[Rfam]
This 110-nucleotide RNA sequence from Nocardioides sp. zg-1228 belongs to the Rfam family "TPP riboswitch aptamer (THI element)".
Rfam links the family to the GO term thiamine pyrophosphate binding.
It scores 62 bits against the family's covariance model.
RNA sequence: CCACGAAGACAGGGGAGCACGUGCAGGCGUGCUGAGAGUGCGGACCAGCCGCAGACCCUCCGAACCUGAUCCGGCUAGCACCGGCGAUAGGGAGUCCAGAUGAAGCACGC
Number, nucleotide and partner (000 for none) at each position: 001c000002c000003a000004c000005g000006a000007a000008g096009a095010c094011a059012g058013g057014g056015g000016a000017g032018c031019a030020c029021g028022u000023g000024c000025a000026g000027g000028c021029g020030u019031g018032c017033u000034g000035a000036g000037a000038g000039u053040g052041c051042g050043g049044a000045c000046c000047a000048g000049c043050c042051g041052c040053a039054g000055a000056c014057c013058c012059u011060c000061c000062g000063a000064a000065c091066c090067u089068g088069a000070u000071c084072c083073g082074g081075c000076u000077a000078g000079c000080a000081c074082c073083g072084g071085c000086g000087a000088u068089a067090g066091g065092g000093a000094g010095u009096c008097c000098a000099g000100a000101u000102g000103a000104a000105g000106c000107a000108c000109g000110c000